[Rfam]
RNA: Small nucleolar RNA SNORA84
RNA sequence: GCCCUGUUGUUGUUGGAGGCUGUUGUGUAGGUACAGAGUCCUAGUGAAUACAAUAAUAGGUCAGAGAACUCCCGUGAUUUAUGCAUGGUUGCUGUUUCUUCUCCCCAGCUGCCAUAGCCCGGUCAUUGGUACAUUA
Numbered sequence: 001g002c003c004c005u006g007u008u009g010u011u012g013u014u015g016g017a018g019g020c021u022g023u024u025g026u027g028u029a030g031g032u033a034c035a036g037a038g039u040c041c042u043a044g045u046g047a048a049u050a051c052a053a054u055a056a057u058a059g060g061u062c063a064g065a066g067a068a069c070u071c072c073c074g075u076g077a078u079u080u081a082u083g084c085a086u087g088g089u090u091g092c093u094g095u096u097u098c099u100u101c102u103c104c105c106c107a108g109c110u111g112c113c114a115u116a117g118c119c120c121g122g123u124c125a126u127u128g129g130u131a132c133a134u135u136a
Stems, first nucleotide, its partner, number of pairs: 001061003007052001010047007020036004072128001074126006083118002085115004091109004